Description:
SAM riboswitch aptamer (S box leader): a 99-nucleotide sequence from Fusibacter sp. A1. Rfam links the family to the GO term regulation of gene expression. The organism belongs to Fusibacter, within Bacteria. A search with the family's covariance model found it, with a score of 75 bits.
RNA sequence: ACCUUAUGAAGAGUGACUGAGGGAUAGGCCCGAUGACGUCCGGCAACCGGUUUUUAACACGGUGCUAAAUCCUACAGAUUAAAUUCUGGAAGAUGAGGA
Numbered sequence: 001a002c003c004u005u006a007u008g009a010a011g012a013g014u015g016a017c018u019g020a021g022g023g024a025u026a027g028g029c030c031c032g033a034u035g036a037c038g039u040c041c042g043g044c045a046a047c048c049g050g051u052u053u054u055u056a057a058c059a060c061g062g063u064g065c066u067a068a069a070u071c072c073u074a075c076a077g078a079u080u081a082a083a084u085u086c087u088g089g090a091a092g093a094u095g096a097g098g099a
Stems, first nucleotide, its partner, number of pairs: 002098006013041001015040003021031003025074004042066004047062002049058001051056001070091001075088004